A member of the RNA family "Rhizobiales sRNA Atu_C8" from Pseudohoeflea suaedae, 117 nucleotides long. The family's consensus secondary structure was predicted with CMfinder. Taxonomically the source falls in Pseudohoeflea (Bacteria, Pseudomonadota, Alphaproteobacteria, Rhizobiaceae). For this family Rfam cites "Deep sequencing uncovers numerous small RNAs on all four replicons of the plant pathogen Agrobacterium tumefaciens" (Wilms et al., RNA Biol, 2012).
RNA sequence: GAAAAUUGCAAGCAUUCUCGUAGUAGGACCGCGCAUGGGCGGGGUGGUGUAGCCACCCGGCGAAAGCUCCCAUGCGCGAAAACAGGCUCCGUAAGGGGCCUUUUUUUAUGGCUCGAA
Numbered sequence: 001g002a003a004a005a006u007u008g009c010a011a012g013c014a015u016u017c018u019c020g021u022a023g024u025a026g027g028a029c030c031g032c033g034c035a036u037g038g039g040c041g042g043g044g045u046g047g048u049g050u051a052g053c054c055a056c057c058c059g060g061c062g063a064a065a066g067c068u069c070c071c072a073u074g075c076g077c078g079a080a081a082a083c084a085g086g087c088u089c090c091g092u093a094a095g096g097g098g099c100c101u102u103u104u105u106u107u108a109u110g111g112c113u114c115g116a117a
Stems, first nucleotide, its partner, number of pairs: 007025001009023001026113002029110001030078010042058006060067002082102001084101007